Glycine riboswitch aptamer: an 88-nucleotide RNA from Rhodosalinus halophilus. Taxonomically the source falls in Rhodosalinus (Bacteria, Pseudomonadati, Pseudomonadota, Rhodobacterales).
[Rfam]
RNA sequence: CCCGUCAGAUCGGGAGAACCGGCCGCGGGCCGGUGCCGAAGGAGCAACCGCCCCGGAAACUCUCAGGCUUCAGGACCGGUCCGGCGAC
Numbered sequence: 001c002c003c004g005u006c007a008g009a010u011c012g013g014g015a016g017a018a019c020c021g022g023c024c025g026c027g028g029g030c031c032g033g034u035g036c037c038g039a040a041g042g043a044g045c046a047a048c049c050g051c052c053c054c055g056g057a058a059a060c061u062c063u064c065a066g067g068c069u070u071c072a073g074g075a076c077c078g079g080u081c082c083g084g085c086g087a088c
Base pairs, nucleotide, nucleotide: 006083008081009080010079011078012077013076019033020032021031022030035068036067037066038064039063042062043061044060048056049055